[Rfam]
This 183-nucleotide RNA from Glycine max belongs to the Rfam family "MIR2606 microRNA precursor family".
Nucleotides: 183
Base pairs, nucleotide, nucleotide: 002182003181004180005179006178007177008176010174011173012172013171015169016168017167018166019165020164021163022162023161024160025159027157028156029155030154031152032151033150034149035148036147038145039144040143041142042141044138045137046136047135048134
Number, partner (000 for none) and nucleotide at each position: 001000a002182a003181a004180g005179c006178u007177u008176a009000u010174a011173u012172a013171c014000a015169g016168u017167u018166c019165c020164u021163u022162a023161g024160g025159u026000u027157c028156u029155u030154u031152g032151g033150u034149g035148c036147u037000c038145u039144u040143c041142u042141u043000c044138a045137u046136c047135a048134a049000u050000u051000a052000g053000a054000a055000u056000c057000g058000a059000a060000g061000u062000u063000u064000c065000a066000c067000c068000u069000c070000a071000a072000u073000a074000a075000u076000c077000u078000c079000u080000u081000a082000a083000u084000a085000a086000a087000g088000g089000u090000u091000u092000g093000c094000a095000u096000u097000a098000a099000a100000g101000a102000u103000c104000a105000a106000c107000a108000u109000a110000a111000a112000u113000u114000a115000c116000c117000g118000a119000g120000u121000u122000g123000a124000a125000a126000u127000u128000c129000c130000a131000a132000u133000u134048u135047u136046g137045a138044u139000u140000g141042a142041a143040g144039a145038a146000u147036a148035g149034c150033a151032c152031c153000a154030a155029a156028a157027g158000c159025a160024c161023u162022u163021a164020a165019g166018g167017a168016a169015c170000g171013g172012u173011a174010u175000c176008u177007a178006a179005g180004u181003u182002u183000c
Description: NCBI's taxonomy places the organism under Eukaryota, Tracheophyta, Fabales, Fabaceae, Glycine subgen. Soja.